[Rfam]
Small Cajal body specific RNA 21: a 139-nucleotide sequence from Ursus maritimus. NCBI's taxonomy places the organism under Eukaryota, Metazoa, Gnathostomata, Teleostomi, Ursus.
RNA sequence: CGGCUCGGUUUCCUGGGGCGUGGGCUCAGCUGCCCCACCCCCCCUCAGCCGAGCCUAGAGCACAGAGGCCUGGCUUCCCCCCCAUGGGAGAGGCACCUGAGACGGGCACCUUCUCCUGGGCUGUCUUCGCCUCACAUUU
Number, nucleotide and partner (000 for none) at each position: 001c000002g055003g054004c053005u052006c051007g050008g000009u000010u000011u000012c000013c000014u000015g043016g042017g041018g040019c000020g038021u037022g036023g035024g034025c000026u000027c000028a000029g000030c000031u000032g000033c000034c024035c023036c022037a021038c020039c000040c018041c017042c016043c015044c000045u000046c000047a000048g000049c000050c007051g006052a005053g004054c003055c002056u000057a000058g000059a000060g000061c000062a000063c000064a000065g133066a132067g131068g130069c129070c000071u000072g126073g125074c000075u000076u000077c120078c119079c118080c000081c000082c000083c000084a000085u000086g111087g110088g109089a000090g000091a000092g000093g000094c000095a000096c000097c000098u000099g000100a000101g000102a000103c000104g000105g000106g000107c000108a000109c088110c087111u086112u000113c000114u000115c000116c000117u000118g079119g078120g077121c000122u000123g000124u000125c073126u072127u000128c000129g069130c068131c067132u066133c065134a000135c000136a000137u000138u000139u000
On this family, see Darzacq et al., EMBO J 2002: "Cajal body-specific small nuclear RNAs: a novel class of 2'-O-methylation and pseudouridylation guide RNAs". scaRNAs are a specific class of small nuclear RNAs which localise to the Cajal bodies and guide the modification of RNA polymerase II transcribed spliceosomal RNAs U1, U2, U4, U5 and U12. ACA68 (SCARNA21) is a member of the H/ACA class of snoRNAs that guide the sites of modification of uridines to pseudouridines. A search with the family's covariance model found it, with a score of 122 bits. Gene Ontology terms of the family: nucleolus, Cajal body and RNA processing.